The record is a 71-nucleotide RNA sequence from Hydrocarboniphaga effusa, which matches "Repression of heat shock gene expression (ROSE) element" in Rfam. Rfam links the family to the GO terms response to temperature stimulus and regulation of translation. The base pairs follow the family's consensus structure.
RNA sequence: ACCGGGAUGCCGAAGUCUGGGUUCCGGUGAAAACCAACCUCGCUGAUCAAACAGGAGCUUUGACGAUGAAU
Numbered sequence: 001a002c003c004g005g006g007a008u009g010c011c012g013a014a015g016u017c018u019g020g021g022u023u024c025c026g027g028u029g030a031a032a033a034c035c036a037a038c039c040u041c042g043c044u045g046a047u048c049a050a051a052c053a054g055g056a057g058c059u060u061u062g063a064c065g066a067u068g069a070a071u
Stems, first nucleotide, its partner, number of pairs: 001028008010020002012017001039057003043054003

Rfam classes the family as an RNA thermoregulator.
For this family Rfam cites "Short ROSE-Like RNA Thermometers Control IbpA Synthesis in Pseudomonas Species" (Krajewski et al., PLoS One, 2013).